[Rfam]
RNA sequence: UCAAUGGGUUCGCAGACUAAGAACGCCACAUCGUGUGGCAACGUCUGCAUGACCACUUCCUGUGGG
Number, nucleotide and partner (000 for none) at each position: 001u000002c000003a000004a000005u000006g000007g000008g000009u000010u000011c000012g048013c047014a046015g045016a044017c043018u000019a000020a000021g000022a000023a000024c000025g039026c038027c037028a036029c035030a000031u000032c000033g000034u000035g029036u028037g027038g026039c025040a000041a000042c000043g017044u016045c015046u014047g013048c012049a000050u000051g000052a000053c065054c064055a063056c062057u000058u000059c000060c000061u000062g056063u055064g054065g053066g000

This 66-nucleotide sequence from Pueribacillus theae belongs to the Rfam family "Bacillaceae-1 RNA". The match comes from Rfam's covariance-model search (64 bits). Lineage of the source: Bacteria > Bacillota > Caryophanales > Bacillaceae > Pueribacillus. Pairs were carried over by alignment from the consensus structure, which is taken from published work.